RNA sequence: UUUUAAGUGUAAGUAUGGCCCAUACAAAAUUUGGGACGUACUUAUACUAAAA
Numbered sequence: 001u002u003u004u005a006a007g008u009g010u011a012a013g014u015a016u017g018g019c020c021c022a023u024a025c026a027a028a029a030u031u032u033g034g035g036a037c038g039u040a041c042u043u044a045u046a047c048u049a050a051a052a
Stems, first nucleotide, its partner, number of pairs: 006048007014040003019035003022031001
Background
The record is a 52-nucleotide sequence from Rousettus aegyptiacus, which matches "mir-1302 microRNA precursor family" in Rfam. The match comes from Rfam's covariance-model search (62 bits). For this family Rfam cites "Application of massively parallel sequencing to microRNA profiling and discovery in human embryonic stem cells" (Morin et al., Genome Res, 2008). Rfam links the family to the GO terms miRNA-mediated post-transcriptional gene silencing and RISC complex.